[Rfam]
RNA sequence: UUGAUUAUUGGGAAUGAAUGUCUCCCACGGAAUCACUCCGAAACCGCUUUUCUAAGCUGAUGACUUCUGUUUGCAU
Numbered sequence: 001u002u003g004a005u006u007a008u009u010g011g012g013a014a015u016g017a018a019u020g021u022c023u024c025c026c027a028c029g030g031a032a033u034c035a036c037u038c039c040g041a042a043a044c045c046g047c048u049u050u051u052c053u054a055a056g057c058u059g060a061u062g063a064c065u066u067c068u069g070u071u072u073g074c075a076u
Stems, first nucleotide, its partner, number of pairs: 010026004016067003020064003046057004
A member of the RNA family "Fluoride riboswitch aptamer (crcB RNA motif)" from Ruminococcus sp. CAG:403, 76 nucleotides long. NCBI's taxonomy places the organism under Bacteria, Bacillota, Clostridia, Oscillospiraceae, Ruminococcus.